[Rfam]
RNA: ZMP/ZTP riboswitch aptamer (pfl RNA motif)
Organism: Arthrobacter sp. ISL-30
RNA sequence: UAACCCUGUCGCAACUGGCGUUGGGUGGUGAACCACCAGGGAGCGGCAUUCACGAAGACCACGGAUCGUACGCCUGGGCCGAGGGU
Numbered sequence: 001u002a003a004c005c006c007u008g009u010c011g012c013a014a015c016u017g018g019c020g021u022u023g024g025g026u027g028g029u030g031a032a033c034c035a036c037c038a039g040g041g042a043g044c045g046g047c048a049u050u051c052a053c054g055a056a057g058a059c060c061a062c063g064g065a066u067c068g069u070a071c072g073c074c075u076g077g078g079c080c081g082a083g084g085g086u
Base pairs, nucleotide, nucleotide: 007048008047009046010045011044012043015040016039017074018073019072020071021070025036026035027034028033062081063080064079066078067077